[Rfam]
RNA: Small nucleolar RNA Z152/R70/R12/
RNA sequence: UAUGCAGUGAUGAGACAAAGCACCGUAGGGGUGUAAUAGGGCAGUGGAAGAAGGUUUAAAAGCCUUCUCCGUGAGCUCAUUUAAUUAACGACUUCUCCUUCCACUGAGCAUA
Numbered sequence: 001u002a003u004g005c006a007g008u009g010a011u012g013a014g015a016c017a018a019a020g021c022a023c024c025g026u027a028g029g030g031g032u033g034u035a036a037u038a039g040g041g042c043a044g045u046g047g048a049a050g051a052a053g054g055u056u057u058a059a060a061a062g063c064c065u066u067c068u069c070c071g072u073g074a075g076c077u078c079a080u081u082u083a084a085u086u087a088a089c090g091a092c093u094u095c096u097c098c099u100u101c102c103a104c105u106g107a108g109c110a111u112a
Stems, first nucleotide, its partner, number of pairs: 001112005